A member of the RNA family "Archaeal large subunit ribosomal RNA" from Candidatus Acidianus copahuensis, 398 nucleotides of a longer RNA. Pairs were carried over by alignment from the consensus structure, which is taken from published work.
RNA sequence: GGCAGUAAUAGCGAAGGAGGGUGAGAAUCCCUCCCGCCGAAAGGGCAAGGGUUUCACGGCAAUGGUCGUCAGCCGUGAGUGAGCCGGUCCUAAGACGGGGCCCAAAUGGUACCCGCCGAAUGGGAAAGGGGUUAAUAUUCCCCUGCCCGGAGGUAGGUUUGCGGUAACGCUACGGUAACUCCUGACGGAUCGGGAUACGAAGAGUGGAGCCUCCGCUCCAUCCAAGCAGUCAAGUCCCUGGAGAGCCGUAACGGUGAGAAGGGGACGAAGCUGUGAUGGGCUUCCCGUUAGGGGAGUUCUUCCCAUUCCUGGUCCCCGUGAAAAGGGAGUUACAACGAUCCUCCGGACCGUACCUAGAACCGACACUGGUGUCCCUGGGUGAGAAGCCCAAGGCGUAU
Numbered sequence: 001g002g003c004a005g006u007a008a009u010a011g012c013g014a015a016g017g018a019g020g021g022u023g024a025g026a027a028u029c030c031c032u033c034c035c036g037c038c039g040a041a042a043g044g045g046c047a048a049g050g051g052u053u054u055c056a057c058g059g060c061a062a063u064g065g066u067c068g069u070c071a072g073c074c075g076u077g078a079g080u081g082a083g084c085c086g087g088u089c090c091u092a093a094g095a096c097g098g099g100g101c102c103c104a105a106a107u108g109g110u111a112c113c114c115g116c117c118g119a120a121u122g123g124g125a126a127a128g129g130g131g132u133u134a135a136u137a138u139u140c141c142c143c144u145g146c147c148c149g150g151a152g153g154u155a156g157g158u159u160u161g162c163g164g165u166a167a168c169g170c171u172a173c174g175g176u177a178a179c180u181c182c183u184g185a186c187g188g189a190u191c192g193g194g195a196u197a198c199g200a201a202g203a204g205u206g207g208a209g210c211c212u213c214c215g216c217u218c219c220a221u222c223c224a225a226g227c228a229g230u231c232a233a234g235u236c237c238c239u240g241g242a243g244a245g246c247c248g249u250a251a252c253g254g255u256g257a258g259a260a261g262g263g264g265a266c267g268a269a270g271c272u273g274u275g276a277u278g279g280g281c282u283u284c285c286c287g288u289u290a291g292g293g294g295a296g297u298u299c300u301u302c303c304c305a306u307u308c309c310u311g312g313u314c315c316c317c318g319u320g321a322a323a324a325g326g327g328a329g330u331u332a333c334a335a336c337g338a339u340c341c342u343c344c345g346g347a348c349c350g351u352a353c354c355u356a357g358a359a360c361c362g363a364c365a366c367u368g369g370u371g372u373c374c375c376u377g378g379g380u381g382a383g384a385a386g387c388c389c390a391a392g393g394c395g396u397a398u
Stems, first nucleotide, its partner, number of pairs: 016034006035395004043374004049354002054078006063071002085350003089123002094117001096115004100110003127144005147346007181327003187315009199302004204221005226274004235265005245255003286291001360369002376390004